Shown here is a 137-nucleotide RNA sequence from Coxiella burnetii, a member of the family "FMN riboswitch aptamer (RFN element)". The organism belongs to Coxiella burnetii, within Bacteria. Rfam describes the family as follows. The RFN element is a highly conserved domain that is found frequently in the 5'-untranslated regions of prokaryotic mRNAs that encode for flavin mononucleotide (FMN) biosynthesis and transport proteins. This element is a metabolite-dependent riboswitch that directly binds FMN in the absence of proteins. In Bacillus subtilis, the riboswitch most likely controls gene expression by causing premature transcription termination within the 5' untranslated region of the ribDEAHT operon and precluding access to the ribosome-binding site of ypaA mRNA.The FMN riboswitch structure, reported in present an FMN-bound six-stem junction, adopts a butterfly-like scaffold, stapled together by opposingly directed but nearly identically folded peripheral domains. Rfam links the family to the GO term FMN binding.
RNA sequence: AAGCGCCUUCAGGGCGGGGUGGAAGUCCCCACCGGCGGUAAGUUUCUUUGAAAUAAGCCCGCGAGUCUCUAUUUUAAGAGACAGAUCUGGUUAAAUUCCAGAGCCGACGGUCAGAGUCCGGAUGAGAGAAGGUAUGC
Dot-bracket structure: ..(.((((((......(((.......))).[[((((((..................[[))))..(((............)))...(((((.......)))))]])).(((.....]]))).......)))))).)..